The family of this 127-nucleotide RNA from Affinibrenneria salicis is "RtT RNA". It scores 100 bits against the family's covariance model. NCBI's taxonomy places the organism under Bacteria, Pseudomonadati, Enterobacterales, Pectobacteriaceae, Affinibrenneria. The family's RNA type in Rfam is cis-regulatory element. Rfam's curators write: This family represents a bacterial cis-regulatory element known as RtT RNA. The exact function of RtT is unknown although it is thought that it may be involved in changing the cellular response in relation to amino acid starvation.
RNA sequence: CAUGUUCCCCACAGGGGAAGGUGACAACCUUCGAUAAGGUUCGACAAAACCGCAGGUUUUGAACAACGCGCAGCGUUGGCCCGCAGGGUGAGGAGCGCAGCGACGAAUUAUCCUUCCCCCACCACCA
Numbered sequence: 001c002a003u004g005u006u007c008c009c010c011a012c013a014g015g016g017g018a019a020g021g022u023g024a025c026a027a028c029c030u031u032c033g034a035u036a037a038g039g040u041u042c043g044a045c046a047a048a049a050c051c052g053c054a055g056g057u058u059u060u061g062a063a064c065a066a067c068g069c070g071c072a073g074c075g076u077u078g079g080c081c082c083g084c085a086g087g088g089u090g091a092g093g094a095g096c097g098c099a100g101c102g103a104c105g106a107a108u109u110a111u112c113c114u115u116c117c118c119c120c121a122c123c124a125c126c127a
Stems, first nucleotide, its partner, number of pairs: 015118007022110001032090002035087001040085001042083002047057001064078006